[Rfam]
RNA sequence: AAUUAAUUUAAAGCGCCAGAACUUAUGUGGAAAUCCUGAAACACUUGGAUUAGUUGGACUAACUAGGUGGAAGAGUUGGAAUCUCACUUACACCACUGUGUAAGUUCAGCUAACUAAAUCAAAGAUUUAGAGUCUCACUUGCAUGCCUAUGUAAGUUCGACUAGUUAAAUCAAAGAUUUAGAGUCUCACUUAAGUUGACGAGGAUGGGGAGUAUCGAUUCUUCGGCGGGUGCCCCACGGUAUCGCACUACCGUUAACGGUUGAUAAAAUCGGGAAGUGAUUUCCGUUACAACAUCAACCUGGUGUUAAAA
Number, nucleotide and partner (000 for none) at each position: 001a000002a000003u000004u000005a000006a000007u000008u000009u000010a000011a000012a000013g000014c000015g000016c000017c000018a000019g000020a196021a195022c194023u193024u192025a191026u000027g189028u000029g187030g000031a000032a000033a000034u000035c000036c000037u000038g000039a000040a000041a000042c000043a000044c000045u000046u000047g000048g000049a000050u000051u000052a000053g000054u000055u000056g000057g000058a000059c000060u000061a000062a000063c000064u000065a000066g000067g000068u000069g000070g000071a000072a000073g000074a000075g000076u000077u000078g000079g000080a000081a000082u000083c000084u000085c000086a000087c000088u000089u000090a000091c000092a000093c000094c000095a000096c000097u000098g000099u000100g000101u000102a000103a000104g000105u000106u000107c000108a000109g000110c000111u000112a000113a000114c000115u000116a000117a000118a000119u000120c000121a000122a000123a000124g000125a000126u000127u000128u000129a000130g000131a000132g000133u000134c000135u000136c000137a000138c000139u000140u000141g000142c000143a000144u000145g000146c000147c000148u000149a000150u000151g000152u000153a000154a000155g000156u000157u000158c000159g000160a000161c000162u000163a000164g000165u000166u000167a000168a000169a000170u000171c000172a000173a000174a000175g000176a000177u000178u000179u000180a000181g000182a000183g000184u000185c000186u000187c029188a000189c027190u000191u025192a024193a023194g022195u021196u020197g000198a000199c000200g000201a000202g000203g000204a000205u236206g235207g234208g233209g232210a000211g000212u000213a000214u225215c224216g223217a222218u000219u000220c000221u000222u217223c216224g215225g214226c000227g000228g000229g000230u000231g000232c209233c208234c207235c206236a205237c252238g251239g250240u249241a248242u000243c000244g000245c000246a000247c000248u241249a240250c239251c238252g237253u000254u000255a000256a000257c000258g299259g298260u297261u296262g295263a000264u000265a000266a000267a000268a000269u000270c285271g284272g283273g282274a281275a280276g000277u000278g000279a000280u275281u274282u273283c272284c271285g270286u000287u000288a000289c000290a000291a000292c000293a000294u000295c262296a261297a260298c259299c258300u000301g000302g000303u000304g000305u000306u000307a000308a000309a000310a000